[Rfam]
RNA sequence: AGCCAUAGCUAGGGGUGCCCCUCAAACCGGGCUGAGAACAAACCCUUUGCACCUGAGUCCGGGUAAUACCGGCGGAGGGAAGCUGUUUAUUCGAGGA
Dot-bracket structure: .....(((((((((.(((((........)))).......)..)))).....(((....((((......))))...)))..)))))............

This 97-nucleotide RNA from Aerosakkonema funiforme belongs to the Rfam family "TPP riboswitch aptamer (THI element)".
The source organism's lineage runs through Bacteria, Bacillati, Aerosakkonematales, Aerosakkonema and Aerosakkonema funiforme.
Its family is annotated with thiamine pyrophosphate binding in the Gene Ontology.